The record is a 75-nucleotide RNA sequence, which matches "L13-Bacteroidia ribosomal protein leader" in Rfam.

[Rfam]
RNA sequence: GGGAGGUUCUUAGAAUCCCCGCGGGUGACGUGUAAAUAGCGUUUGUCUUUGGCCGGACUACGUGGUUUGUGAAUC
Numbered sequence: 001g002g003g004a005g006g007u008u009c010u011u012a013g014a015a016u017c018c019c020c021g022c023g024g025g026u027g028a029c030g031u032g033u034a035a036a037u038a039g040c041g042u043u044u045g046u047c048u049u050u051g052g053c054c055g056g057a058c059u060a061c062g063u064g065g066u067u068u069g070u071g072a073a074u075c
Stems, first nucleotide, its partner, number of pairs: 001020003005017005033069005039063003043060001045058004